RNA sequence: GUCACCGUGAGGUGGGGUCUGAAGGAAGCCGGAGGCAAACCACUGGCCUGUAAAAGUUGUCCGGACAGGCUGUGAAGCGUGGAUGAGAUUGCAUCACAAAUCAAAGUCCAAUAACUGCACGGAACGCCAGCAGUAAACGGGGCAGGUAUAAGUGGGAAAGAACGUGUG
Numbered sequence: 001g002u003c004a005c006c007g008u009g010a011g012g013u014g015g016g017g018u019c020u021g022a023a024g025g026a027a028g029c030c031g032g033a034g035g036c037a038a039a040c041c042a043c044u045g046g047c048c049u050g051u052a053a054a055a056g057u058u059g060u061c062c063g064g065a066c067a068g069g070c071u072g073u074g075a076a077g078c079g080u081g082g083a084u085g086a087g088a089u090u091g092c093a094u095c096a097c098a099a100a101u102c103a104a105a106g107u108c109c110a111a112u113a114a115c116u117g118c119a120c121g122g123a124a125c126g127c128c129a130g131c132a133g134u135a136a137a138c139g140g141g142g143c144a145g146g147u148a149u150a151a152g153u154g155g156g157a158a159a160g161a162a163c164g165u166g167u168g
Stems, first nucleotide, its partner, number of pairs: 002015005030166002036160001040155005046147005060142003064138001069134003073130001077127004081109004087102004